A member of the RNA family "mir-3492 microRNA precursor family" from Schistosoma haematobium, 78 nucleotides long. The source organism's lineage runs through Eukaryota, Opisthokonta, Spiralia, Neodermata and Schistosoma. The family has 2 seed sequences and 21,496 matches in Rfam 15.1.
RNA sequence: AGCUUUUCGAAUUUAUGCUGAGAUUUCGCUUGACACCAAACCAUUAGAACCGAUCAGACUUCCAAAAUAAGUGAAGUU
Number, nucleotide and partner (000 for none) at each position: 001a000002g077003c076004u075005u074006u073007u000008c071009g000010a000011a068012u067013u066014u000015a000016u064017g063018c000019u000020g061021a060022g059023a000024u058025u057026u056027c000028g054029c000030u052031u000032g000033a000034c000035a000036c000037c000038a000039a000040a000041c000042c000043a000044u000045u000046a000047g000048a000049a000050c000051c000052g030053a000054u028055c000056a026057g025058a024059c022060u021061u020062c000063c017064a016065a000066a013067a012068u011069a000070a000071g008072u000073g006074a005075a004076g003077u002078u000